[Rfam]
RNA sequence: CUUCCCUUCAUGCCGGGGUCUUGGCAUGUACCUCCCUGUUGGACUGGCCCGGGUUUCGGCCCGGGCCCUUUU
Numbered sequence: 001c002u003u004c005c006c007u008u009c010a011u012g013c014c015g016g017g018g019u020c021u022u023g024g025c026a027u028g029u030a031c032c033u034c035c036c037u038g039u040u041g042g043a044c045u046g047g048c049c050c051g052g053g054u055u056u057c058g059g060c061c062c063g064g065g066c067c068c069u070u071u072u
Base pairs, nucleotide, nucleotide: 009028010027011026012025013024014023047066048065049064050063051062052061053060054059
About this RNA
A member of the RNA family "Singlet oxygen resistance RNA X" from Meinhardsimonia xiamenensis, 72 nucleotides long. It scores 66 bits against the family's covariance model. From the family's description: SorX (RSs2461)like SorY is a singlet oxygen induced sRNA that counteracts oxidative stress by targeting mRNA for a transporter in Rhodobacter. It also has an impact on resistance against organic hydroperoxides. It targets SD sequence of potA mRNA via an aSD sequence. The aSD sequence and some neighbouring nucleotides are identical to the one of SorY (targets takP mRNA). Its family is annotated with response to photooxidative stress in the Gene Ontology.